[Rfam]
RNA sequence: CUAUCAAUGAAGUAUGGUAAUGUGCACAUAAAUUGAUUUGGGUCUUUAGGCCUGCCCUCUCUAAUGCCAUUUGGCUUUGAUUUGGGGCCAUAGUUCUACAAUAAAACG
Numbered sequence: 001c002u003a004u005c006a007a008u009g010a011a012g013u014a015u016g017g018u019a020a021u022g023u024g025c026a027c028a029u030a031a032a033u034u035g036a037u038u039u040g041g042g043u044c045u046u047u048a049g050g051c052c053u054g055c056c057c058u059c060u061c062u063a064a065u066g067c068c069a070u071u072u073g074g075c076u077u078u079g080a081u082u083u084g085g086g087g088c089c090a091u092a093g094u095u096c097u098a099c100a101a102u103a104a105a106a107c108g
Stems, first nucleotide, its partner, number of pairs: 012025004040091001042089001044087001050081001052079001054075003
Dot-bracket structure: ...........((((......))))..............(.(.(.....(.(.(((................)))...).).....).).).................
Source information:
The record is a 108-nucleotide RNA sequence from Rhododendron simsii, which matches "Small nucleolar RNA snoR100" in Rfam. Gene Ontology terms of the family: nucleolus and RNA processing. For this family Rfam cites "Experimental RNomics: identification of 140 candidates for small non-messenger RNAs in the plant Arabidopsis thaliana" (Marker et al., Curr Biol, 2002). It scores 74 bits against the family's covariance model.